[Rfam]
RNA sequence: UAGCAGUGAUGAAAGGUUUUACUACUGACCUUUAUAACCGUGAAGGUUUCUACACUUGAUCUGAGCUCA
Numbered sequence: 001u002a003g004c005a006g007u008g009a010u011g012a013a014a015g016g017u018u019u020u021a022c023u024a025c026u027g028a029c030c031u032u033u034a035u036a037a038c039c040g041u042g043a044a045g046g047u048u049u050c051u052a053c054a055c056u057u058g059a060u061c062u063g064a065g066c067u068c069a
Stems, first nucleotide, its partner, number of pairs: 002067003012033007
Record summary: Small nucleolar RNA U2-30: a 69-nucleotide RNA from Vicugna pacos. Gene Ontology terms of the family: nucleolus and RNA processing. Taxonomically the source falls in Vicugna (Eukaryota, Opisthokonta, Vertebrata, Gnathostomata). By type it is a C/D-box small nucleolar RNA. The base pairs follow the family's consensus structure, which is taken from published work.